[Rfam]
RNA sequence: UGGUUGAUAAUGACGAGACCACUGCUCAGUCUGAGUUCUGGAAACCAGGUGAUGGAGUGUGUUCUGAGAAUGGACUGAGACUG
Numbered sequence: 001u002g003g004u005u006g007a008u009a010a011u012g013a014c015g016a017g018a019c020c021a022c023u024g025c026u027c028a029g030u031c032u033g034a035g036u037u038c039u040g041g042a043a044a045c046c047a048g049g050u051g052a053u054g055g056a057g058u059g060u061g062u063u064c065u066g067a068g069a070a071u072g073g074a075c076u077g078a079g080a081c082u083g
Base pairs, nucleotide, nucleotide: 002082003081004080005079038048039047040046041045
Shown here is an 83-nucleotide RNA from Myotis lucifugus, a member of the family "small Cajal body-specific RNA 18".
Rfam classes the family as a small Cajal body RNA.
Gene Ontology terms of the family: nucleolus, Cajal body and RNA processing.
Taxonomically the source falls in Myotis (Eukaryota, Bilateria, Dipnotetrapodomorpha, Laurasiatheria).
The family's consensus secondary structure was predicted with PFOLD.
Rfam describes the family as follows. scaRNAs are a specific class of small nuclear RNAs which localise to the Cajal bodies and guide the modification of RNA polymerase II transcribed spliceosomal RNAs U1, U2, U4, U5 and U12.